[Rfam]
A member of the RNA family "Small nucleolar RNA F1/F2/snoR5a" from Cocos nucifera, 141 nucleotides long. The match comes from Rfam's covariance-model search (64 bits). Rfam's curators write: This family contains F1, F2 and snoR5a sequences, all of which are members of the the H/ACA class of snoRNA that guide the sites of modification of uridines to pseudouridines. The source organism's lineage runs through Eukaryota, Streptophyta, Mesangiospermae, Attaleinae and Cocos. The base pairs follow the family's consensus structure, which was predicted with PFOLD. Rfam classes the family as an H/ACA-box small nucleolar RNA.

RNA sequence: UAAUGCCAUUUAGUAUCUGAUGCUCAGUGUGGUUCAUGGCUGUGCAUCUCGUUAGAAUGGCAAUAAGGAGAGGAACGGGUCUUGCGACCCUGGUUGCUCUUCUUCCACGAGCUUCCUGUUACUUUUAUUCGGCUCACAUUU
Numbered sequence: 001u002a003a004u005g006c007c008a009u010u011u012a013g014u015a016u017c018u019g020a021u022g023c024u025c026a027g028u029g030u031g032g033u034u035c036a037u038g039g040c041u042g043u044g045c046a047u048c049u050c051g052u053u054a055g056a057a058u059g060g061c062a063a064u065a066a067g068g069a070g071a072g073g074a075a076c077g078g079g080u081c082u083u084g085c086g087a088c089c090c091u092g093g094u095u096g097c098u099c100u101u102c103u104u105c106c107a108c109g110a111g112c113u114u115c116c117u118g119u120u121a122c123u124u125u126u127a128u129u130c131g132g133c134u135c136a137c138a139u140u141u
Stems, first nucleotide, its partner, number of pairs: 004062006019048005025042004031037001074134001076132001078130001090118001092116002096112003